[Rfam]
A member of the RNA family "Bacterial small subunit ribosomal RNA" from Reichenbachiella faecimaris, 559 nucleotides of a longer RNA. Rfam links the family to the GO terms ribosome and structural constituent of ribosome. It scores 1530 bits against the family's covariance model.

RNA sequence: ACAAUGGAGAGUUUGAUCCUGGCUCAGGAUGAACGCUAGCGGCAGGCCUAAUACAUGCAAGUCGAGGGGCAGCAUGAGUACUUGUACUUGAUGGCGACCGGCGCACGGGUGCGUAACGCGUAUGCAACCUACCCAUAACUGGAGGAUAGCCCGGGGAAACUCGGAUUAAUACUCCAUAGUAUUACCAGAUGGCAUCUGAAGGUAAUUAAAGAUUUAUUGGUUAUGGAUGGGCAUGCGUAUCAUUAGUUAGUUGGUAAGGUAACGGCUUACCAAGACUUCGAUGAUUAGGGGGCCUGAGAGGGUGAUCCCCCACACUGGUACUGAGAUACGGACCAGACUCCUACGGGAGGCAGCAGUAGGGAAUAUUGGUCAAUGGAGGAGACUCUGAACCAGCCAUGCCGCGUGCAGGAAGACGGCCUUCUGGGUUGUAAACUGCUUUUGACAGGGAAGAAAACGGCUAUGCGUAGCUAACUGACGGUACCUGUAGAAUAAGCACCGGCUAACUCCGUGCCAGCAGCCGCGGUAAUACGGAGGGUGCAAGCGUUGUCCGGAUUUAUUG
Numbered sequence: 001a002c003a004a005u006g007g008a009g010a011g012u013u014u015g016a017u018c019c020u021g022g023c024u025c026a027g028g029a030u031g032a033a034c035g036c037u038a039g040c041g042g043c044a045g046g047c048c049u050a051a052u053a054c055a056u057g058c059a060a061g062u063c064g065a066g067g068g069g070c071a072g073c074a075u076g077a078g079u080a081c082u083u084g085u086a087c088u089u090g091a092u093g094g095c096g097a098c099c100g101g102c103g104c105a106c107g108g109g110u111g112c113g114u115a116a117c118g119c120g121u122a123u124g125c126a127a128c129c130u131a132c133c134c135a136u137a138a139c140u141g142g143a144g145g146a147u148a149g150c151c152c153g154g155g156g157a158a159a160c161u162c163g164g165a166u167u168a169a170u171a172c173u174c175c176a177u178a179g180u181a182u183u184a185c186c187a188g189a190u191g192g193c194a195u196c197u198g199a200a201g202g203u204a205a206u207u208a209a210a211g212a213u214u215u216a217u218u219g220g221u222u223a224u225g226g227a228u229g230g231g232c233a234u235g236c237g238u239a240u241c242a243u244u245a246g247u248u249a250g251u252u253g254g255u256a257a258g259g260u261a262a263c264g265g266c267u268u269a270c271c272a273a274g275a276c277u278u279c280g281a282u283g284a285u286u287a288g289g290g291g292g293c294c295u296g297a298g299a300g301g302g303u304g305a306u307c308c309c310c311c312a313c314a315c316u317g318g319u320a321c322u323g324a325g326a327u328a329c330g331g332a333c334c335a336g337a338c339u340c341c342u343a344c345g346g347g348a349g350g351c352a353g354c355a356g357u358a359g360g361g362a363a364u365a366u367u368g369g370u371c372a373a374u375g376g377a378g379g380a381g382a383c384u385c386u387g388a389a390c391c392a393g394c395c396a397u398g399c400c401g402c403g404u405g406c407a408g409g410a411a412g413a414c415g416g417c418c419u420u421c422u423g424g425g426u427u428g429u430a431a432a433c434u435g436c437u438u439u440u441g442a443c444a445g446g447g448a449a450g451a452a453a454a455c456g457g458c459u460a461u462g463c464g465u466a467g468c469u470a471a472c473u474g475a476c477g478g479u480a481c482c483u484g485u486a487g488a489a490u491a492a493g494c495a496c497c498g499g500c501u502a503a504c505u506c507c508g509u510g511c512c513a514g515c516a517g518c519c520g521c522g523g524u525a526a527u528a529c530g531g532a533g534g535g536u537g538c539a540a541g542c543g544u545u546g547u548c549c550g551g552a553u554u555u556a557u558u559g
Stems, first nucleotide, its partner, number of pairs: 009025005027549004032545006039402006045395002047360001052358003056355003061102003066099002069095002075090006109313003118238008128230002133226007141175004149166001151164005181206006191196001211218002239285003246276003251273008288310004292303004315336005338349004366392001368391003374387005405436004415427004442485005450476001457469001493538005504533005514521002